[Rfam]
RNA sequence: GCGCCGCCCCAACGGCUUCCUGACGGGGCAGGUCUGAACUUUUACCGGAGCA
Numbered sequence: 001g002c003g004c005c006g007c008c009c010c011a012a013c014g015g016c017u018u019c020c021u022g023a024c025g026g027g028g029c030a031g032g033u034c035u036g037a038a039c040u041u042u043u044a045c046c047g048g049a050g051c052a
Stems, first nucleotide, its partner, number of pairs: 004032002006029005013022002015051003019048002
The record is a 52-nucleotide RNA from Pseudooceanicola marinus, which matches "SAM/SAH riboswitch aptamer" in Rfam. The organism belongs to Pseudooceanicola, within Bacteria. Its family is annotated with S-adenosylmethionine metabolic process and regulation of gene expression in the Gene Ontology.